[Rfam]
The record is a 120-nucleotide RNA sequence from Raineyella antarctica, which matches "Actinobacteria sRNA Ms_IGR-7" in Rfam. It is annotated as a small RNA. The source organism's lineage runs through Bacteria, Actinomycetota, Propionibacteriales, Propionibacteriaceae and Raineyella. The family has 14 seed sequences and 463 matches in Rfam 15.1. It scores 50 bits against the family's covariance model.

RNA sequence: ACGAGAUGCCCUUCUUGACUGGCUGAUACGGACCUUAGACAAGUCGUAUCUUCCCAGGCCAGAAGGGCAUUUCCACGCUCCCGCGCCUACCCACCCCACCCAGCACAUCGGUGGAUCGAG
Numbered sequence: 001a002c003g004a005g006a007u008g009c010c011c012u013u014c015u016u017g018a019c020u021g022g023c024u025g026a027u028a029c030g031g032a033c034c035u036u037a038g039a040c041a042a043g044u045c046g047u048a049u050c051u052u053c054c055c056a057g058g059c060c061a062g063a064a065g066g067g068c069a070u071u072u073c074c075a076c077g078c079u080c081c082c083g084c085g086c087c088u089a090c091c092c093a094c095c096c097c098a099c100c101c102a103g104c105a106c107a108u109c110g111g112u113g114g115a116u117c118g119a120g
Stems, first nucleotide, its partner, number of pairs: 003073011015062003019057004025050003029046001032044002101118001103116001106113002